[Rfam]
Rfam assigns this 57-nucleotide RNA from Portulaca pilosa to the family "Plastid-psbA-3 3UTR RNA".
RNA sequence: AAAGGAGCAAUAACCAAUUUCUUGGUCAAACAAGAAACAGGUAUUGCCCCUUUAUUU
Numbered sequence: 001a002a003a004g005g006a007g008c009a010a011u012a013a014c015c016a017a018u019u020u021c022u023u024g025g026u027c028a029a030a031c032a033a034g035a036a037a038c039a040g041g042u043a044u045u046g047c048c049c050c051u052u053u054a055u056u057u
Stems, first nucleotide, its partner, number of pairs: 001053005007047006014040001019036006

The literature on the family includes a 2023 paper in Plant Commun by Richter et al., "Retrograde signaling in plants: A critical review focusing on the GUN pathway and beyond".